[Rfam]
RNA sequence: UUACUCUGGCUUCCCUUCAGAACGCAUAAAUCUUUCGCCUUUUACUAAAGAUUUCCGUGGAGGGGAGCAACUUAAUGAGUCUAUAAAAAUUUGUUUGAGGCUUGCUUCUGCGAGCC
Numbered sequence: 001u002u003a004c005u006c007u008g009g010c011u012u013c014c015c016u017u018c019a020g021a022a023c024g025c026a027u028a029a030a031u032c033u034u035u036c037g038c039c040u041u042u043u044a045c046u047a048a049a050g051a052u053u054u055c056c057g058u059g060g061a062g063g064g065g066a067g068c069a070a071c072u073u074a075a076u077g078a079g080u081c082u083a084u085a086a087a088a089a090u091u092u093g094u095u096u097g098a099g100g101c102u103u104g105c106u107u108c109u110g111c112g113a114g115c116c
Base pairs, nucleotide, nucleotide: 003080004079005078006077009068010067011066012065013064014063015062016061017060018059019058028054029053030052031051032050033049034048035047100115101114102113103112104111105110

A member of the RNA family "U5 spliceosomal RNA" from Hyalella azteca, 116 nucleotides long. Lineage of the source: Eukaryota > Bilateria > Arthropoda > Communostraca > Hyalella. The base pairs follow the family's consensus structure, which is taken from published work. Gene Ontology terms of the family: U5 snRNP and spliceosomal tri-snRNP complex assembly. U5 RNA is a component of both types of known spliceosome. The precise function of this molecule is unknown, though it is known that the 5' loop is required for splice site selection and p220 binding, and that both the 3' stem-loop and the Sm site are important for Sm protein binding and cap methylation. It is annotated as a spliceosomal small nuclear RNA.